[Rfam]
RNA: Eukaryotic large subunit ribosomal RNA, nucleotides 1440 to 1878
Organism: Jaapia argillacea
RNA sequence: GGUAGUAGCAAAUAUUCAAGUGAGAUCCUUGAAGACUGAAGUGGAGAAAGGUUCCAUGGUAACAGCGGUUGGACAUGGGUUAGUCGAUCCUAAGAGAUAGGGAAGCUCCGUUUUAAAGCGCGCGAUUCUUCGCGCCGCCUAUCGAAAGGGAAUCCGGUUAAAAUUCCGGAACCAGGAUGUGGAUCUUUAACGGCAACGUAAAUGAACUUGGAGACGCUGGCGAGGGCCCCGGGAAGAGUUUUCUUUUCUCCUUAACAGUCUGAGACCCUGAAAUCGGUUUGUCCGGAGCUAGGGUUUAAUGAUUGGUAGAGCCCGACAACUCUGUCGGGUCCGGUGCGUCCUUGACGGCCCUUGAAAAUCCAAGGGAAUUCUAAUAAUUUUCACACCUGGUCGUACUCAUAACCGCAGCAGGUCUCCAAGGUGAACAGCCUCUAGUUGA
Numbered sequence: 001g002g003u004a005g006u007a008g009c010a011a012a013u014a015u016u017c018a019a020g021u022g023a024g025a026u027c028c029u030u031g032a033a034g035a036c037u038g039a040a041g042u043g044g045a046g047a048a049a050g051g052u053u054c055c056a057u058g059g060u061a062a063c064a065g066c067g068g069u070u071g072g073a074c075a076u077g078g079g080u081u082a083g084u085c086g087a088u089c090c091u092a093a094g095a096g097a098u099a100g101g102g103a104a105g106c107u108c109c110g111u112u113u114u115a116a117a118g119c120g121c122g123c124g125a126u127u128c129u130u131c132g133c134g135c136c137g138c139c140u141a142u143c144g145a146a147a148g149g150g151a152a153u154c155c156g157g158u159u160a161a162a163a164u165u166c167c168g169g170a171a172c173c174a175g176g177a178u179g180u181g182g183a184u185c186u187u188u189a190a191c192g193g194c195a196a197c198g199u200a201a202a203u204g205a206a207c208u209u210g211g212a213g214a215c216g217c218u219g220g221c222g223a224g225g226g227c228c229c230c231g232g233g234a235a236g237a238g239u240u241u242u243c244u245u246u247u248c249u250c251c252u253u254a255a256c257a258g259u260c261u262g263a264g265a266c267c268c269u270g271a272a273a274u275c276g277g278u279u280u281g282u283c284c285g286g287a288g289c290u291a292g293g294g295u296u297u298a299a300u301g302a303u304u305g306g307u308a309g310a311g312c313c314c315g316a317c318a319a320c321u322c323u324g325u326c327g328g329g330u331c332c333g334g335u336g337c338g339u340c341c342u343u344g345a346c347g348g349c350c351c352u353u354g355a356a357a358a359u360c361c362a363a364g365g366g367a368a369u370u371c372u373a374a375u376a377a378u379u380u381u382c383a384c385a386c387c388u389g390g391u392c393g394u395a396c397u398c399a400u401a402a403c404c405g406c407a408g409c410a411g412g413u414c415u416c417c418a419a420g421g422u423g424a425a426c427a428g429c430c431u432c433u434a435g436u437u438g439a
Stems, first nucleotide, its partner, number of pairs: 015033006034437004043417004049397002054078005063071002085393003089149002094143002096112003100109003153170005173389004178385005183379001190199003207364006216349004221344007229334003232252002235249003256305005265295006274286004312329007403412002419431004